[Rfam]
RNA sequence: GCCGCGUGAGCACAGGAUAAGAGAACGAAAAAUCAGCAGUCUAUGCAGCGACAAAUAUUGAUAGCCUGAAUCAGUAUUG
Numbered sequence: 001g002c003c004g005c006g007u008g009a010g011c012a013c014a015g016g017a018u019a020a021g022a023g024a025a026c027g028a029a030a031a032a033u034c035a036g037c038a039g040u041c042u043a044u045g046c047a048g049c050g051a052c053a054a055a056u057a058u059u060g061a062u063a064g065c066c067u068g069a070a071u072c073a074g075u076a077u078u079g
Base pairs, nucleotide, nucleotide: 001049002048005045006044007043008042010040011039016034017033018032054078055077056076057075058074059073060072061071062070
Rfam assigns this 79-nucleotide RNA sequence from Shigella dysenteriae to the family "C0299 RNA".
The family's consensus secondary structure was predicted with PFOLD.
From the family's description: This family consists of a group of Shigella flexneri and Escherichia coli RNA genes which are 78 bases in length and are found between the hlyE and umuD genes. The function of this RNA is unknown.
It is one of the family's seed sequences.
By type it is a small RNA.